The family of this 62-nucleotide RNA from Ictalurus punctatus is "mir-129 microRNA precursor family".
On this family, see Lagos-Quintana et al., Curr Biol 2002: "Identification of tissue-specific microRNAs from mouse".
[Rfam]
RNA sequence: CUUUUUGCGGUCUGGGCUUGCUGUUCUCAACUAUCAAUGGGAAGCCCUUACCCCAAAAAGCA
Numbered sequence: 001c002u003u004u005u006u007g008c009g010g011u012c013u014g015g016g017c018u019u020g021c022u023g024u025u026c027u028c029a030a031c032u033a034u035c036a037a038u039g040g041g042a043a044g045c046c047c048u049u050a051c052c053c054c055a056a057a058a059a060g061c062a
Stems, first nucleotide, its partner, number of pairs: 001060007009052003014047004019042001021040002